[Rfam]
Nucleotides: 055
Stems, first nucleotide, its partner, number of pairs: 002054006009047002012044005018038001020036005
Number, partner (000 for none) and nucleotide at each position: 001000g002054u003053g004052g005051g006050a007049a008000c009047c010046a011000u012044a013043a014042g015041g016040g017000u018038c019000u020036g021035u022034g023033c024032u025000g026000u027000c028000u029000c030000u031000g032024a033023g034022c035021a036020c037000c038018g039000u040016c041015u042014c043013u044012u045000c046010u047009g048000u049007u050006u051005c052004c053003c054002a055000g
The record is a 55-nucleotide RNA from Macaca mulatta, which matches "mir-6827 microRNA precursor family" in Rfam. Rfam links the family to the GO terms miRNA-mediated post-transcriptional gene silencing and RISC complex.